[Rfam]
About this RNA
Rfam assigns this 97-nucleotide RNA sequence to the family "PhotoRC-II RNA". Pairs were carried over by alignment from the consensus structure, which is taken from published work.
RNA sequence: AAUCUCUUGUAAACACCCCUUAAACCGAGACCUCUAGGGUGUAUAAAUCACGUCUCUCAUACCUCAGGCGGAGGGUGUCUGAGGAAUAAUCUAACUG
Numbered sequence: 001a002a003u004c005u006c007u008u009g010u011a012a013a014c015a016c017c018c019c020u021u022a023a024a025c026c027g028a029g030a031c032c033u034c035u036a037g038g039g040u041g042u043a044u045a046a047a048u049c050a051c052g053u054c055u056c057u058c059a060u061a062c063c064u065c066a067g068g069c070g071g072a073g074g075g076u077g078u079c080u081g082a083g084g085a086a087u088a089a090u091c092u093a094a095c096u097g
Stems, first nucleotide, its partner, number of pairs: 014041005020036001027056005062084007